[Rfam]
RNA sequence: ACGAAUAAUGCAUUUCGACCUCAUAUAAUCUUGGGAAUAUGGCCCAUAAGUUUCUACCUAGUAACCGUAAAUAACUAGACUAUGAGGGAAAGUGAUGCCUUG
Numbered sequence: 001a002c003g004a005a006u007a008a009u010g011c012a013u014u015u016c017g018a019c020c021u022c023a024u025a026u027a028a029u030c031u032u033g034g035g036a037a038u039a040u041g042g043c044c045c046a047u048a049a050g051u052u053u054c055u056a057c058c059u060a061g062u063a064a065c066c067g068u069a070a071a072u073a074a075c076u077a078g079a080c081u082a083u084g085a086g087g088g089a090a091a092g093u094g095a096u097g098c099c100u101u102g
Stems, first nucleotide, its partner, number of pairs: 019087007029049001032046004058078005064072001
RNA: Purine riboswitch aptamer
Organism: Jeotgalibacillus soli